Shown here is a 175-nucleotide sequence from Nocardioides luteus, a member of the family "c-di-AMP riboswitch aptamer (ydaO/yuaA leader)".
RNA sequence: CUACUGAACCCCCUUACCCCUCACACUCAGCAGUACGUAUGGGACAGGAGCGGGGGACCCAAGUUCCACGCGACUAACUCGGACGGUCGCUUGGGGUGAAGCCAUCGCUCGAUGGCCGGGCAACCUUCUAGCCCGAACCCGACAGCUCACCUCGCAGGCGUGGGAAGGAACUCAC
Numbered sequence: 001c002u003a004c005u006g007a008a009c010c011c012c013c014u015u016a017c018c019c020c021u022c023a024c025a026c027u028c029a030g031c032a033g034u035a036c037g038u039a040u041g042g043g044a045c046a047g048g049a050g051c052g053g054g055g056g057a058c059c060c061a062a063g064u065u066c067c068a069c070g071c072g073a074c075u076a077a078c079u080c081g082g083a084c085g086g087u088c089g090c091u092u093g094g095g096g097u098g099a100a101g102c103c104a105u106c107g108c109u110c111g112a113u114g115g116c117c118g119g120g121c122a123a124c125c126u127u128c129u130a131g132c133c134c135g136a137a138c139c140c141g142a143c144a145g146c147u148c149a150c151c152u153c154g155c156a157g158g159c160g161u162g163g164g165a166a167g168g169a170a171c172u173c174a175c
Base pairs, nucleotide, nucleotide: 002160004158005157010048011047050155051154052153053152054151055150060093061092062091063090064089094140095139096138102115103114104113105112118134119133120132121131